[Rfam]
A member of the RNA family "azaaromatic riboswitch aptamer (yjdF RNA)" from Thermaerobacillus caldiproteolyticus, 107 nucleotides long.
The source organism's lineage runs through Bacteria, Bacillota, Bacilli, Caryophanales and Thermaerobacillus.
The match comes from Rfam's covariance-model search (77 bits).
RNA sequence: CAUAGACAGUGUAAAAACACAGUCCCGGUCGGUAGUCCGUGCGCACUCGAGUGAAGAGUGUCAGUAACCUUCCCCUCCUUGGGAUGUCCGCCGCUGUCGGUAAUUUU
Numbered sequence: 001c002a003u004a005g006a007c008a009g010u011g012u013a014a015a016a017a018c019a020c021a022g023u024c025c026c027g028g029u030c031g032g033u034a035g036u037c038c039g040u041g042c043g044c045a046c047u048c049g050a051g052u053g054a055a056g057a058g059u060g061u062c063a064g065u066a067a068c069c070u071u072c073c074c075c076u077c078c079u080u081g082g083g084a085u086g087u088c089c090g091c092c093g094c095u096g097u098c099g100g101u102a103a104u105u106u107u
Base pairs, nucleotide, nucleotide: 005098006097007096008095009094010093011092022042023041026039027038028037043061044060045059046058047057048056071084072083073082074081